[Rfam]
RNA sequence: GGUCAUAUUUUUCCACAGCUUUCUUGAACUUUCUUUUUCAUUUCCAUUUUGUUAUUGAACCAAAACAACUGAAAAUAUAUAACAUCUAACAUUCUGGAAAAAAAAAAGAAGCUCAAGAAAGCUGUGGGAAAACAUGACAA
Number, nucleotide and partner (000 for none) at each position: 001g000002g000003u137004c136005a135006u134007a000008u000009u000010u000011u000012u000013c127014c126015a125016c000017a123018g122019c121020u120021u119022u118023c000024u116025u115026g114027a113028a000029c111030u110031u109032u108033c000034u000035u000036u000037u000038u000039c000040a000041u000042u000043u000044c000045c000046a000047u000048u000049u000050u000051g000052u000053u000054a000055u000056u000057g000058a000059a000060c000061c000062a000063a000064a000065a000066c000067a000068a000069c000070u000071g000072a000073a000074a000075a000076u000077a000078u000079a000080u000081a000082a000083c000084a000085u000086c000087u000088a000089a000090c000091a000092u000093u000094c000095u000096g000097g000098a000099a000100a000101a000102a000103a000104a000105a000106a000107a000108g032109a031110a030111g029112c000113u027114c026115a025116a024117g000118a022119a021120a020121g019122c018123u017124g000125u015126g014127g013128g000129a000130a000131a000132a000133c000134a006135u005136g004137a003138c000139a000140a000
Shown here is a 140-nucleotide RNA from Eutrema salsugineum, a member of the family "MIR396 microRNA precursor family". Its family is annotated with miRNA-mediated post-transcriptional gene silencing and RISC complex in the Gene Ontology. The literature on the family includes a 2004 paper in Mol Cell by Jones-Rhoades and Bartel, "Computational identification of plant microRNAs and their targets, including a stress-induced miRNA". The family's consensus secondary structure was predicted with WAR.